[Rfam]
RNA sequence: AAUUCAUCAAGAGUGGUGGAGGGACUGGCCCUAUGAAACCCGGCAACCUGUUUAAGAAACGUGGUGCUAAUUCCAGCGGCAACGCCGAAAGAUGACGC
Numbered sequence: 001a002a003u004u005c006a007u008c009a010a011g012a013g014u015g016g017u018g019g020a021g022g023g024a025c026u027g028g029c030c031c032u033a034u035g036a037a038a039c040c041c042g043g044c045a046a047c048c049u050g051u052u053u054a055a056g057a058a059a060c061g062u063g064g065u066g067c068u069a070a071u072u073c074c075a076g077c078g079g080c081a082a083c084g085c086c087g088a089a090a091g092a093u094g095a096c097g098c
Base pairs, nucleotide, nucleotide: 004095005094006093007092008091013041015040016039017038021031022030023029025076026075027074028073042068043067044066045065047064048063049061050060051059052058072090077087078086079085080084
Notes: This 98-nucleotide RNA sequence from Ezakiella coagulans belongs to the Rfam family "SAM riboswitch aptamer (S box leader)". The base pairs follow the family's consensus structure, which is taken from published work. It scores 80 bits against the family's covariance model. NCBI's taxonomy places the organism under Bacteria, Bacillati, Bacillota, Tissierellia, Ezakiella.